[Rfam]
RNA sequence: GAAUUACAUAGAAUGUGAAACCAUAUAAGUCUGCAAAUAAGGUGUGGAAGUCUCUACGCGGCGACCGUAAAUUGCCUGCGCUAUGGUGUUCUUUUUUCUGCUU
Numbered sequence: 001g002a003a004u005u006a007c008a009u010a011g012a013a014u015g016u017g018a019a020a021c022c023a024u025a026u027a028a029g030u031c032u033g034c035a036a037a038u039a040a041g042g043u044g045u046g047g048a049a050g051u052c053u054c055u056a057c058g059c060g061g062c063g064a065c066c067g068u069a070a071a072u073u074g075c076c077u078g079c080g081c082u083a084u085g086g087u088g089u090u091c092u093u094u095u096u097u098c099u100g101c102u103u
Stems, first nucleotide, its partner, number of pairs: 018089001020087006030048006058079002060076005

The family of this 103-nucleotide RNA from Sporolactobacillus laevolacticus is "Purine riboswitch aptamer". Rfam links the family to the GO term purine nucleobase biosynthetic process. From the family's description: Riboswitches are metabolite binding domains within certain messenger RNAs that serve as precision sensors for their corresponding targets. A search with the family's covariance model found it, with a score of 62 bits. The organism belongs to Sporolactobacillus laevolacticus, within Bacteria.